FMN riboswitch aptamer (RFN element): a 151-nucleotide RNA sequence from Pleomorphomonas diazotrophica. The match comes from Rfam's covariance-model search (113 bits). Pairs were carried over by alignment from the consensus structure, which is taken from published work.
RNA sequence: GACCAUUCUCGGGGCGGGGCGAAAUUCCCCACCGGCGGUAAUGGUGGCGCGAGCCGCCUAGCCCGCGAGCGCUUCGGCCUCACGGCCGGAGGUCAGCAGAUCCGGUUGGAUUCCGGAGCCGACGGUACAGUCCGGAUGAAAGAGAAGGGUG
Numbered sequence: 001g002a003c004c005a006u007u008c009u010c011g012g013g014g015c016g017g018g019g020c021g022a023a024a025u026u027c028c029c030c031a032c033c034g035g036c037g038g039u040a041a042u043g044g045u046g047g048c049g050c051g052a053g054c055c056g057c058c059u060a061g062c063c064c065g066c067g068a069g070c071g072c073u074u075c076g077g078c079c080u081c082a083c084g085g086c087c088g089g090a091g092g093u094c095a096g097c098a099g100a101u102c103c104g105g106u107u108g109g110a111u112u113c114c115g116g117a118g119c120c121g122a123c124g125g126u127a128c129a130g131u132c133c134g135g136a137u138g139a140a141a142g143a144g145a146a147g148g149g150u151g
Stems, first nucleotide, its partner, number of pairs: 003149002006146005017029003031131002033121002035066004061119002069097002101117005123134003